Description:
This 264-nucleotide sequence from Solirubrobacter ginsenosidimutans belongs to the Rfam family "Bacterial large signal recognition particle RNA". Pairs were carried over by alignment from the consensus structure, which is taken from published work. Rfam classes the family as a non-coding RNA gene. On this family, see Rosenblad et al., Nucleic Acids Res 2003: "SRPDB: Signal Recognition Particle Database".
RNA sequence: CCGUGCUAGGCGGGGCAGUAGCGGCGUCCUAUAUCCGCAAUCCGCUCUAGCGGAGCUGAAUUCCCUCUCGAGGGGCACGGCUCCGGGCCAACGUACGCUGCCACGGCGUCGAUGGUCGGGUCCCGCACGACGUCGGCCCGUGAAUCAGGUCAGGUCCGGAAGGAAGCAGCCUUAAGCGGUCACCGGUGGGCGUCGCGGGGUCGCCCGAUCGGAGUCAGUGAGGCGGACAGUCCCUGGAGGCCGACUUCGACAGAGGGUGCACGG
Numbered sequence: 001c002c003g004u005g006c007u008a009g010g011c012g013g014g015g016c017a018g019u020a021g022c023g024g025c026g027u028c029c030u031a032u033a034u035c036c037g038c039a040a041u042c043c044g045c046u047c048u049a050g051c052g053g054a055g056c057u058g059a060a061u062u063c064c065c066u067c068u069c070g071a072g073g074g075g076c077a078c079g080g081c082u083c084c085g086g087g088c089c090a091a092c093g094u095a096c097g098c099u100g101c102c103a104c105g106g107c108g109u110c111g112a113u114g115g116u117c118g119g120g121u122c123c124c125g126c127a128c129g130a131c132g133u134c135g136g137c138c139c140g141u142g143a144a145u146c147a148g149g150u151c152a153g154g155u156c157c158g159g160a161a162g163g164a165a166g167c168a169g170c171c172u173u174a175a176g177c178g179g180u181c182a183c184c185g186g187u188g189g190g191c192g193u194c195g196c197g198g199g200g201u202c203g204c205c206c207g208a209u210c211g212g213a214g215u216c217a218g219u220g221a222g223g224c225g226g227a228c229a230g231u232c233c234c235u236g237g238a239g240g241c242c243g244a245c246u247u248c249g250a251c252a253g254a255g256g257g258u259g260c261a262c263g264g
Stems, first nucleotide, its partner, number of pairs: 001264006009057003012030005019023001034054005063257006072248004078243005083237005091231002093228002096225003103219002105216003113211009122199005128190001131188005136181001138179004147172004155164003